[Rfam]
RNA sequence: UUCAAUUGUAGAGGAGCGACAUUUAAGAGUACUUAGUGGAGUUAAGCAACGCUGAAACGAAAGAAAAGGAAAUGUCGCCGAAAUAUAUAACUGAUUGCUUUAAGGUUAUAUAUUGGGUCUAAAUAGAAUAUAUUUAGAACUGUCACAAAGAAAAACUUUGUGGAGUGCUAUUGGUUGA
Number, nucleotide and partner (000 for none) at each position: 001u000002u000003c000004a000005a000006u173007u000008g171009u170010a169011g168012a000013g000014g000015a000016g078017c077018g076019a075020c074021a073022u072023u071024u070025a000026a000027g000028a000029g000030u000031a000032c063033u062034u061035a000036g058037u057038g000039g000040a000041g000042u000043u000044a000045a000046g000047c000048a000049a000050c000051g000052c000053u000054g000055a000056a000057a037058c036059g000060a000061a034062a033063g032064a000065a000066a000067a000068g000069g000070a024071a023072a022073u021074g020075u019076c018077g017078c016079c000080g000081a000082a114083a113084u112085a111086u110087a109088u108089a107090a106091c105092u104093g000094a000095u000096u000097g000098c000099u000100u000101u000102a000103a000104g092105g091106u090107u089108a088109u087110a086111u085112a084113u083114u082115g141116g140117g000118u138119c137120u136121a135122a134123a133124u132125a131126g000127a000128a000129u000130a000131u125132a124133u123134u122135u121136a120137g119138a118139a000140c116141u115142g000143u163144c162145a161146c160147a159148a158149a157150g000151a000152a000153a000154a000155a000156c000157u149158u148159u147160g146161u145162g144163g143164a000165g000166u000167g000168c011169u010170a009171u008172u000173g006174g000175u000176u000177g000178a000
The record is a 178-nucleotide sequence from Anaeromonas frigoriresistens, which matches "Lysine riboswitch aptamer" in Rfam. The organism belongs to Anaeromonas, within Bacteria. The match comes from Rfam's covariance-model search (115 bits). Rfam describes the family as follows. Riboswitches are metabolite binding domains within certain messenger RNAs that serve as precision sensors for their corresponding targets. Allosteric rearrangement of mRNA structure is mediated by ligand binding, and this results in modulation of gene expression. This family includes riboswitches that sense lysine in a number of genes involved in lysine metabolism, including lysC.